RNA sequence: CCCGCCACUAUACCAGCCAAUUUCUGUGGCUGAGUAGAGUCCAGUGGAGGCUCAAAGCGACCCAGCUUUAGGAAACAGAGAUGCCCACAUGAAUGGACGUCUCUGUGCCGAAAAGCCUGGAACACGA
Numbered sequence: 001c002c003c004g005c006c007a008c009u010a011u012a013c014c015a016g017c018c019a020a021u022u023u024c025u026g027u028g029g030c031u032g033a034g035u036a037g038a039g040u041c042c043a044g045u046g047g048a049g050g051c052u053c054a055a056a057g058c059g060a061c062c063c064a065g066c067u068u069u070a071g072g073a074a075a076c077a078g079a080g081a082u083g084c085c086c087a088c089a090u091g092a093a094u095g096g097a098c099g100u101c102u103c104u105g106u107g108c109c110g111a112a113a114a115g116c117c118u119g120g121a122a123c124a125c126g127a
Stems, first nucleotide, its partner, number of pairs: 005047005018034001022029002062120004066115004071109002076105006085096002
Record summary: The family of this 127-nucleotide RNA sequence from Nothobranchius furzeri is "Small nucleolar RNA SNORA65". Rfam's curators write: U65 belongs to the H/ACA class of snoRNAs which are thought to guide the sites of modification of uridines to pseudouridines. A search with the family's covariance model found it, with a score of 89 bits. A reference for the family is Huttenhofer et al. (2001), "RNomics: an experimental approach that identifies 201 candidates for novel, small, non-messenger RNAs in mouse", EMBO J. The family's consensus secondary structure was predicted with RNAalifold.